Shown here is a 106-nucleotide RNA sequence from Savagea serpentis, a member of the family "SAM riboswitch aptamer (S box leader)". Lineage of the source: Bacteria > Bacillati > Bacillota > Caryophanales > Savagea. A reference for the family is Grundy and Henkin (1998), "The S box regulon: a new global transcription termination control system for methionine and cysteine biosynthesis genes in gram-positive bacteria", Mol Microbiol. A search with the family's covariance model found it, with a score of 88 bits. The base pairs follow the family's consensus structure, which is taken from published work.
RNA sequence: CUCUUAUCCAGAGAGGCGGAGGGACUAGGCCCUAUGAUGCCCGGCAACCGGUGAAAUUUCACAAAGGUGCUACUUCCUACAGGUUUGACUACCUGGAAGAUAAGGG
Numbered sequence: 001c002u003c004u005u006a007u008c009c010a011g012a013g014a015g016g017c018g019g020a021g022g023g024a025c026u027a028g029g030c031c032c033u034a035u036g037a038u039g040c041c042c043g044g045c046a047a048c049c050g051g052u053g054a055a056a057u058u059u060c061a062c063a064a065a066g067g068u069g070c071u072a073c074u075u076c077c078u079a080c081a082g083g084u085u086u087g088a089c090u091a092c093c094u095g096g097a098a099g100a101u102a103a104g105g106g
Base pairs, nucleotide, nucleotide: 001106002105003104004103005102006101007100008099013042015041016040017039021032022031023030026079027078028077029076043071044070045069046068048067049066051062052061053060075098080095081094082093083092084091